[Rfam]
RNA sequence: GGUUGCAACAUCCCCGUGGGUUGGGUCCUGGCCUAUCGAUGGCCAGGUACAGCGAAUCCACUGCAGCC
Numbered sequence: 001g002g003u004u005g006c007a008a009c010a011u012c013c014c015c016g017u018g019g020g021u022u023g024g025g026u027c028c029u030g031g032c033c034u035a036u037c038g039a040u041g042g043c044c045a046g047g048u049a050c051a052g053c054g055a056a057u058c059c060a061c062u063g064c065a066g067c068c
Stems, first nucleotide, its partner, number of pairs: 001068007013054001014052001016061007023053001025050002027047007
Shown here is a 68-nucleotide sequence from Granulicella tundricola, a member of the family "nadA riboswitch". The organism belongs to Granulicella tundricola, within Bacteria. The literature on the family includes a 2020 paper in RNA by Huang et al., "Structure and ligand binding of the ADP-binding domain of the NAD(+) riboswitch". The sequence is in the family's curated seed alignment.